[Rfam]
RNA sequence: CUUCCCAUUUAUUUGCUGCUAUUGUCUUUCAGUGAUAUGAGCAGUUAUACGCAUGGGAUAAAAUAAUGGUGCACCAUUGUAAAUUGAGAUGAGCUGAUUACCCAUUUCAUCUCUUCGUCAUGGUCUACACAUUG
Number, nucleotide and partner (000 for none) at each position: 001c000002u000003u058004c057005c056006c055007a054008u053009u000010u000011a000012u000013u000014u000015g045016c044017u043018g042019c041020u040021a000022u037023u000024g000025u035026c034027u000028u000029u000030c000031a000032g000033u000034g026035a025036u000037a022038u000039g000040a020041g019042c018043a017044g016045u015046u000047a000048u000049a000050c000051g000052c000053a008054u007055g006056g005057g004058a003059u000060a000061a000062a000063a000064u000065a000066a000067u000068g000069g128070u127071g126072c000073a124074c123075c122076a121077u000078u120079g119080u000081a000082a000083a000084u000085u000086g113087a112088g111089a110090u109091g108092a107093g106094c000095u104096g000097a000098u000099u000100a000101c000102c000103c000104a095105u000106u093107u092108c091109a090110u089111c088112u087113c086114u000115u000116c000117g000118u000119c079120a078121u076122g075123g074124u073125c000126u071127a070128c069129a000130c000131a000132u000133u000134g000

A member of the RNA family "Small nucleolar RNA SNORA20" from Tupaia belangeri, 134 nucleotides long. ACA20 is a member of the H/ACA class of snoRNA that guide the sites of modification of uridines to pseudouridines. The base pairs follow the family's consensus structure, which was predicted with ILM. By type it is an H/ACA-box small nucleolar RNA. Its family is annotated with RNA processing and nucleolus in the Gene Ontology. Its Rfam clan is "SNORA20 clan".